[Rfam]
RNA sequence: CCCGCCACUUUGCCAGUCUGUCUGCGUGACUGAGUGUAGUCCAGUGGAGGCUAAGAUGGACCCAGCUCUAGGAAACAUGGCUGCCCAGGCGGUGGGCAACUUUGUGCCGAAAGGCCUGGAACAAUU
Numbered sequence: 001c002c003c004g005c006c007a008c009u010u011u012g013c014c015a016g017u018c019u020g021u022c023u024g025c026g027u028g029a030c031u032g033a034g035u036g037u038a039g040u041c042c043a044g045u046g047g048a049g050g051c052u053a054a055g056a057u058g059g060a061c062c063c064a065g066c067u068c069u070a071g072g073a074a075a076c077a078u079g080g081c082u083g084c085c086c087a088g089g090c091g092g093u094g095g096g097c098a099a100c101u102u103u104g105u106g107c108c109g110a111a112a113g114g115c116c117u118g119g120a121a122c123a124a125u126u
Stems, first nucleotide, its partner, number of pairs: 005047005018034002020031001021029002062119004066114002069111001071108002076104002079101002084096003
Dot-bracket structure: ....(((((........(((((.....)).).))........)))))..............((((((.(.((...((.((...(((.......)))...)).))..))..).)).)))).......

Shown here is a 126-nucleotide RNA sequence, a member of the family "Small nucleolar RNA SNORA65". The literature on the family includes a 2001 paper in EMBO J by Huttenhofer et al., "RNomics: an experimental approach that identifies 201 candidates for novel, small, non-messenger RNAs in mouse". Its family is annotated with nucleolus and RNA processing in the Gene Ontology. From the family's description: U65 belongs to the H/ACA class of snoRNAs which are thought to guide the sites of modification of uridines to pseudouridines. It is annotated as an H/ACA-box small nucleolar RNA. Clan: SNORA65 clan.